This 84-nucleotide RNA from Effusibacillus dendaii belongs to the Rfam family "c-di-GMP-I riboswitch aptamer".
RNA sequence: CUCGAUCAAUCGCAAAAUUGUUGAAAAGCAAUUACGCAAAGCCGCAGUUCAAAGGAAUUAUGCCAUAGUGGCUGGGCUAUCGAA
Numbered sequence: 001c002u003c004g005a006u007c008a009a010u011c012g013c014a015a016a017a018u019u020g021u022u023g024a025a026a027a028g029c030a031a032u033u034a035c036g037c038a039a040a041g042c043c044g045c046a047g048u049u050c051a052a053a054g055g056a057a058u059u060a061u062g063c064c065a066u067a068g069u070g071g072c073u074g075g076g077c078u079a080u081c082g083a084a
Base pairs, nucleotide, nucleotide: 012037013036017032018031019030020029021028022027040078041077042076043075045074046073047072049068055063057061